RNA sequence: UAACAUAUUUGGAGCAUAUCUUUAUUUAGUUAUCACAGACACACUUGACUGCUUAGAAUCAUCCAUUAUCGUAAGUCCAACUACAUUAUUAACAUUGAAAAACAGAGGACAACUACUAUAACUUUUUGAGAUUUUAA
Numbered sequence: 001u002a003a004c005a006u007a008u009u010u011g012g013a014g015c016a017u018a019u020c021u022u023u024a025u026u027u028a029g030u031u032a033u034c035a036c037a038g039a040c041a042c043a044c045u046u047g048a049c050u051g052c053u054u055a056g057a058a059u060c061a062u063c064c065a066u067u068a069u070c071g072u073a074a075g076u077c078c079a080a081c082u083a084c085a086u087u088a089u090u091a092a093c094a095u096u097g098a099a100a101a102a103c104a105g106a107g108g109a110c111a112a113c114u115a116c117u118a119u120a121a122c123u124u125u126u127u128g129a130g131a132u133u134u135u136a137a
Base pairs, nucleotide, nucleotide: 005134007132008130009129012126014124023120024119025118027115028114029113030112031111
Dot-bracket structure: ....(.(((..(.(........(((.(((((...............................................................................)))))..)))...).)..)).).)...

The record is a 137-nucleotide RNA from Populus trichocarpa, which matches "MIR480 microRNA precursor family" in Rfam. Pairs were carried over by alignment from the consensus structure, which was predicted with WAR. Rfam's curators put it in the seed alignment. The source organism's lineage runs through Eukaryota, Embryophyta, Spermatophyta, Magnoliopsida and Populus. A reference for the family is Lu et al. (2005), "Novel and mechanical stress-responsive MicroRNAs in Populus trichocarpa that are absent from Arabidopsis", Plant Cell.